A member of the RNA family "Glycine riboswitch aptamer" from Deefgea piscis, 109 nucleotides long. The source organism's lineage runs through Bacteria, Betaproteobacteria, Neisseriales, Chitinibacteraceae and Deefgea. Rfam links the family to the GO term glycine biosynthetic process.
[Rfam]
RNA sequence: GCCCGUACAGCAGGAGAGUGUGAUUUUUACCAUUUAUUGGAUUUAAAUCACCACCGAAGGCGCAAAUGCACCCGCAAAUCGCUCAGGUAUCAGGGACUGCUGGCAAAAG
Number, nucleotide and partner (000 for none) at each position: 001g000002c000003c000004c000005g000006u000007a000008c102009a101010g100011c099012a098013g097014g000015a000016g000017a000018g000019u000020g051021u050022g049023a048024u047025u046026u045027u000028u000029a000030c000031c000032a000033u000034u000035u000036a000037u000038u000039g000040g000041a000042u000043u000044u000045a026046a025047a024048u023049c022050a021051c020052c000053a088054c087055c086056g084057a083058a000059g000060g082061c081062g080063c000064a000065a000066a000067u000068g075069c074070a000071c000072c000073c000074g069075c068076a000077a000078a000079u000080c062081g061082c060083u057084c056085a000086g055087g054088u053089a000090u000091c000092a000093g000094g000095g000096a000097c013098u012099g011100c010101u009102g008103g000104c000105a000106a000107a000108a000109g000